[Rfam]
Shown here is a 106-nucleotide RNA sequence from Columba livia, a member of the family "mir-223 microRNA precursor family". The match comes from Rfam's covariance-model search (92 bits). On this family, see Lim et al., Science 2003: "Vertebrate microRNA genes". The family's consensus secondary structure was predicted with RNAalifold. Taxonomically the source falls in Columba (Eukaryota, Opisthokonta, Sarcopterygii, Tetrapoda).
RNA sequence: CCGGCAGCGAGCGCGGUGCCGCGCUGCGUGUAUUUGACAAGCUGAGUCCGACACUCAGUGCGAGAGUGUCAGUUUGUCAAAUACCCCAAGCGAGGCACUGCUGAGC
Number, nucleotide and partner (000 for none) at each position: 001c000002c000003g000004g000005c000006a000007g000008c000009g000010a000011g000012c000013g000014c000015g000016g000017u000018g000019c000020c000021g000022c092023g091024c090025u089026g000027c000028g086029u000030g084031u083032a082033u081034u080035u079036g078037a077038c076039a075040a074041g073042c072043u071044g000045a000046g000047u000048c000049c000050g070051a069052c068053a067054c000055u065056c064057a000058g000059u000060g000061c000062g000063a000064g056065a055066g000067u053068g052069u051070c050071a043072g042073u041074u040075u039076g038077u037078c036079a035080a034081a033082u032083a031084c030085c000086c028087c000088a000089a025090g024091c023092g022093a000094g000095g000096c000097a000098c000099u000100g000101c000102u000103g000104a000105g000106c000